[Rfam]
RNA sequence: UGAGAAAAGUAGGAGUGAGAGCUCCUCGCCUUGCAACGAAAGUUGUCUGGCCCAAACAUGUCAAAUCUCAAUGAGAUACUAUAUGUGUAUGGGCUUAGAAAUUUUAAGCCCAUUUUCUUUUCUCUAA
Number, nucleotide and partner (000 for none) at each position: 001u000002g000003a000004g000005a000006a000007a000008a000009g000010u000011a026012g025013g024014a023015g022016u021017g000018a000019g000020a000021g016022c015023u014024c013025c012026u011027c000028g051029c050030c049031u000032u000033g046034c045035a044036a043037c042038g000039a000040a000041a000042g037043u036044u035045g034046u033047c000048u000049g030050g029051c028052c000053c000054a000055a000056a000057c000058a000059u000060g000061u000062c000063a000064a000065a000066u000067c000068u000069c000070a000071a000072u000073g000074a000075g000076a000077u000078a000079c000080u000081a000082u000083a000084u000085g000086u000087g000088u000089a113090u112091g111092g110093g109094c108095u107096u106097a105098g000099a000100a000101a000102u000103u000104u000105u097106a096107a095108g094109c093110c092111c091112a090113u089114u000115u000116u000117c000118u000119u000120u000121u000122c000123u000124c000125u000126a000127a000

Ribosomal protein L20 leader: a 127-nucleotide RNA from Streptococcus urinalis. The family's consensus secondary structure was predicted with CMfinder. Taxonomically the source falls in Streptococcus urinalis (Bacteria, Bacillota, Bacilli, Lactobacillales). This family is a putative r-protein leader autoregulatory structure found in B. subtilis and other low-GC Gram-positive bacteria.